About this RNA: A member of the RNA family "t44 RNA" from Acinetobacter marinus, 128 nucleotides long. Taxonomically the source falls in Acinetobacter (Bacteria, Pseudomonadati, Moraxellales, Moraxellaceae). About the family: This family consists of a number of bacterial RNA genes of between 135 and 170 bases in length.
RNA sequence: AUCAUGAGUUAAAAAAUCCGCACAUAUGUCGACACAUUCCUCUGGGUGCUUUUAUUAAAUCAAGCAGUUAGUUUUUGCUAAAUGCAAGAUUGAACAAAGUGGAGAAUGCGGACAUAUGGAGGCCUAAC
Numbered sequence: 001a002u003c004a005u006g007a008g009u010u011a012a013a014a015a016a017u018c019c020g021c022a023c024a025u026a027u028g029u030c031g032a033c034a035c036a037u038u039c040c041u042c043u044g045g046g047u048g049c050u051u052u053u054a055u056u057a058a059a060u061c062a063a064g065c066a067g068u069u070a071g072u073u074u075u076u077g078c079u080a081a082a083u084g085c086a087a088g089a090u091u092g093a094a095c096a097a098a099g100u101g102g103a104g105a106a107u108g109c110g111g112a113c114a115u116a117u118g119g120a121g122g123c124c125u126a127a128c
Base pairs, nucleotide, nucleotide: 023118024117025116026115027114028113029112030111035108036107037106038105040104041103042102043101048100049099050098051097052096